[Rfam]
RNA sequence: UCGCCGGGCCGUGACUGGCGCGCUGGGAUGGACGAACCAUCGGGGAGCGGCCCGGGAGACUAGAGCCGUGCGCCUGGGCCGUACCG
Numbered sequence: 001u002c003g004c005c006g007g008g009c010c011g012u013g014a015c016u017g018g019c020g021c022g023c024u025g026g027g028a029u030g031g032a033c034g035a036a037c038c039a040u041c042g043g044g045g046a047g048c049g050g051c052c053c054g055g056g057a058g059a060c061u062a063g064a065g066c067c068g069u070g071c072g073c074c075u076g077g078g079c080c081g082u083a084c085c086g
Stems, first nucleotide, its partner, number of pairs: 004055009015044002017074005028040004065079003
RNA: ZMP/ZTP riboswitch aptamer (pfl RNA motif)
Organism: Streptomyces sp. Go-475